Rfam assigns this 111-nucleotide RNA sequence from Lacisediminihabitans profunda to the family "Glycine riboswitch aptamer". Taxonomically the source falls in Lacisediminihabitans (Bacteria, Bacillati, Actinomycetota, Microbacteriaceae).
RNA sequence: CAACGCGAUGCGGGAGAGCCGGGGCACCAGUCGAACGCCGACUGCGGAACCCGGCACCGAAGGAGCAAUUCUCCCCACCAAUCUCUCAGGUACGUGUACCGCAUCGAACAG
Numbered sequence: 001c002a003a004c005g006c007g008a009u010g011c012g013g014g015a016g017a018g019c020c021g022g023g024g025c026a027c028c029a030g031u032c033g034a035a036c037g038c039c040g041a042c043u044g045c046g047g048a049a050c051c052c053g054g055c056a057c058c059g060a061a062g063g064a065g066c067a068a069u070u071c072u073c074c075c076c077a078c079c080a081a082u083c084u085c086u087c088a089g090g091u092a093c094g095u096g097u098a099c100c101g102c103a104u105c106g107a108a109c110a111g
Base pairs, nucleotide, nucleotide: 006106007105008104009103010102011101012100013099019054020053021052022051056091057090058089059087060086063085064084065083070077